The record is a 98-nucleotide RNA from Acholeplasma brassicae, which matches "Purine riboswitch aptamer" in Rfam. A search with the family's covariance model found it, with a score of 64 bits.

RNA sequence: AUAUAAUAGGUUCAAUAUAUGCGUAUAUCGCUUGAAUAUGGCAAGCAGUCUCUACCCUAAACCAUGAAUUUAGGACUACGCAAAAGAACCAAACGUAU
Numbered sequence: 001a002u003a004u005a006a007u008a009g010g011u012u013c014a015a016u017a018u019a020u021g022c023g024u025a026u027a028u029c030g031c032u033u034g035a036a037u038a039u040g041g042c043a044a045g046c047a048g049u050c051u052c053u054a055c056c057c058u059a060a061a062c063c064a065u066g067a068a069u070u071u072a073g074g075a076c077u078a079c080g081c082a083a084a085a086g087a088a089c090c091a092a093a094c095g096u097a098u
Stems, first nucleotide, its partner, number of pairs: 018084001020082006030046005056074006
The base pairs follow the family's consensus structure, which is taken from published work.